[Rfam]
RNA sequence: CAAGUUUGAGACCAUAGCAGAAGUGCUCACAGCGUGUCCUGGCAGAUUCCAACAAAUCUGUGAAUUCUGCU
Number, nucleotide and partner (000 for none) at each position: 001c000002a000003a000004g000005u000006u000007u000008g039009a000010g000011a037012c000013c036014a000015u000016a071017g070018c069019a068020g067021a066022a065023g035024u034025g033026c000027u000028c000029a000030c000031a000032g000033c025034g024035u023036g013037u011038c000039c008040u000041g000042g000043c060044a059045g058046a057047u056048u055049c000050c000051a000052a000053c000054a000055a048056a047057u046058c045059u044060g043061u000062g000063a000064a000065u022066u021067c020068u019069g018070c017071u016
RNA: Mammalian CPEB3 ribozyme